[Rfam]
Nucleotides: 057
Stems, first nucleotide, its partner, number of pairs: 014029005033056010
Number, partner (000 for none) and nucleotide at each position: 001000g002000u003000a004000u005000u006000u007000c008000c009000a010000g011000a012000u013000u014029u015028c016027g017026a018025c019000c020000a021000a022000u023000a024000a025018g026017u027016c028015g029014a030000a031000a032000u033056g034055g035054c036053u037052g038051g039050u040049g041048a042047c043000g044000u045000u046000u047042g048041u049040c050039a051038c052037c053036g054035g055034c056033c057000u
A member of the RNA family "Pseudomonas sRNA P26" from Marinomonas ushuaiensis, 57 nucleotides long. It is annotated as a non-coding RNA gene. The match comes from Rfam's covariance-model search (40 bits). The organism belongs to Marinomonas ushuaiensis, within Bacteria. On this family, see Livny et al., Nucleic Acids Res 2006: "Identification of 17 Pseudomonas aeruginosa sRNAs and prediction of sRNA-encoding genes in 10 diverse pathogens using the bioinformatic tool sRNAPredict2". Rfam's curators write: This small RNA (sRNA) was computationally identified in the genome of the opportunistic pathogen Pseudomonas aeruginosa and its expression verified by northern blot analysis.